The record is a 270-nucleotide sequence from Mus musculus, which matches "Mason-Pfizer monkey virus packaging signal" in Rfam. Rfam describes the family as follows. This family represents a group of sequences that are related to the Mason-Pfizer monkey virus (MPMV) packaging signal. The packaging signal is located in the 5' UTR and is required for specific RNA encapsidation. It is annotated as a cis-regulatory element.
[Rfam]
RNA sequence: UGGUGCCUAACGUGGGGCUUGAGGAUGAGGCCUUCAGUGAAGAACACUGUGGUGUUUCUGUUCAGACAAUGUUGUGUGGAAGACGUCCUGCACAGGAGCCUGCCUUCUUGACUAGGGAUCCUGGUGAUUCCUCAGUGAUCAUGGGACAGGAACUUAGUAGCCAUGAACUCUUUGGGGAAGGUUUGAAAAAGGCUUUAAUGGCACGAGGGAUAAAGUUUAAAAUACAUGACUUACUUGCAUUUUUUGAUUUUGUAAAAGAGAUUUGUCUAU
Numbered sequence: 001u002g003g004u005g006c007c008u009a010a011c012g013u014g015g016g017g018c019u020u021g022a023g024g025a026u027g028a029g030g031c032c033u034u035c036a037g038u039g040a041a042g043a044a045c046a047c048u049g050u051g052g053u054g055u056u057u058c059u060g061u062u063c064a065g066a067c068a069a070u071g072u073u074g075u076g077u078g079g080a081a082g083a084c085g086u087c088c089u090g091c092a093c094a095g096g097a098g099c100c101u102g103c104c105u106u107c108u109u110g111a112c113u114a115g116g117g118a119u120c121c122u123g124g125u126g127a128u129u130c131c132u133c134a135g136u137g138a139u140c141a142u143g144g145g146a147c148a149g150g151a152a153c154u155u156a157g158u159a160g161c162c163a164u165g166a167a168c169u170c171u172u173u174g175g176g177g178a179a180g181g182u183u184u185g186a187a188a189a190a191g192g193c194u195u196u197a198a199u200g201g202c203a204c205g206a207g208g209g210a211u212a213a214a215g216u217u218u219a220a221a222a223u224a225c226a227u228g229a230c231u232u233a234c235u236u237g238c239a240u241u242u243u244u245u246g247a248u249u250u251u252g253u254a255a256a257a258g259a260g261a262u263u264u265g266u267c268u269a270u
Base pairs, nucleotide, nucleotide: 006030007029008028013024035049036048037047038046086118087117088116090112091110092109094106095103125148126147129145130144131143154197156195157193158192204246205245206244207243208242209241210240211239214232215231217229218228219227255270257268258267259266